[Rfam]
Source information: Shown here is a 155-nucleotide sequence from Parashewanella spongiae, a member of the family "Molybdenum/Tungsten riboswitch aptamer (Moco RNA motif)". NCBI's taxonomy places the organism under Bacteria, Pseudomonadota, Alteromonadales, Shewanellaceae, Parashewanella. Pairs were carried over by alignment from the consensus structure, which is taken from published work.

RNA sequence: UUUUCGACGGUUCUCCGAGCCUUUUAUCCUACGUUUCGUGUCAGCUAUGUGAUAGCUAAAAAUAGGGAUAACUGGCCGUGGCAAUAAGGCCACCAGGGUGACAUCAGAAAUGAUUUCACCUCCCGCACUUGGAAAGGUGAUCAUGUCUCAAUUAG
Numbered sequence: 001u002u003u004u005c006g007a008c009g010g011u012u013c014u015c016c017g018a019g020c021c022u023u024u025u026a027u028c029c030u031a032c033g034u035u036u037c038g039u040g041u042c043a044g045c046u047a048u049g050u051g052a053u054a055g056c057u058a059a060a061a062a063u064a065g066g067g068a069u070a071a072c073u074g075g076c077c078g079u080g081g082c083a084a085u086a087a088g089g090c091c092a093c094c095a096g097g098g099u100g101a102c103a104u105c106a107g108a109a110a111u112g113a114u115u116u117c118a119c120c121u122c123c124c125g126c127a128c129u130u131g132g133a134a135a136g137g138u139g140a141u142c143a144u145g146u147c148u149c150a151a152u153u154a155g
Stems, first nucleotide, its partner, number of pairs: 006146001012140002015137002019076003024071006033063004078093005096121006103114004122132002